[Rfam]
RNA: U4atac minor spliceosomal RNA
Organism: Vulpes vulpes
RNA sequence: AUCAUCCUUUUCUUGAGGUUGCACUACUGUCCAAUGAGCUCCUAGUGAGGGCAGUACUGCUAAUGCCUUAACAAGAAACACUCAGAGACGAUAGAUAUUUUACCUUGAAAAGAUCUUGGAGUUUGCUUGGAAGU
Numbered sequence: 001a002u003c004a005u006c007c008u009u010u011u012c013u014u015g016a017g018g019u020u021g022c023a024c025u026a027c028u029g030u031c032c033a034a035u036g037a038g039c040u041c042c043u044a045g046u047g048a049g050g051g052c053a054g055u056a057c058u059g060c061u062a063a064u065g066c067c068u069u070a071a072c073a074a075g076a077a078a079c080a081c082u083c084a085g086a087g088a089c090g091a092u093a094g095a096u097a098u099u100u101u102a103c104c105u106u107g108a109a110a111a112g113a114u115c116u117u118g119g120a121g122u123u124u125g126c127u128u129g130g131a132a133g134u
Stems, first nucleotide, its partner, number of pairs: 006018004021060003026055007038046002089119001092118002096113001098111004